[Rfam]
RNA sequence: GGAAGUGUGUGUCUUCUGUUUGUGAACAUUGGCACAUUGAACAUUGAAUCGCUAGUUAGCAGUUAAUUAGCAGAUCUGCUCAGUGGCUGACGGUCACACUCUCCAGUCAAUAUCUCCCACCCAGUAAUUUGCUGGCGGGCGCAAGUAUACGUCGCUCUUGGUCUUCUGAUGCUGUGACAACGGGUCAUAACGCACAGUCGCUGCGCGAUAUGCAUAGUACGCUCACUCCAUCUCCCGGAGUGUUGAGUGCUGCGUUUGCGCCGAGAUCGGGCGAUGUUCCUCUGCGACGUCAUUUCCAAAAUUUCUUGGUUAAGUAACUUGUGGUAGCUUAGCUUCGGAUUUGUGUAAAUUUGCUGUUCAGAACACUUCCAAUAUGGUGGCAUUGCCGAGCAAUUUGCCCAUACUUUUU
Dot-bracket structure: ((((((((.............((((....(......(((..((..(.(((((((..(.......)..)))).))))))..))).........))))).........................................................................................................................................................................................................................................................................))))))))........((((((((...)))))..)))..........

Description: A member of the RNA family "Arthropod 7SK RNA" from Bactrocera dorsalis, 409 nucleotides long. The base pairs follow the family's consensus structure, which is taken from published work.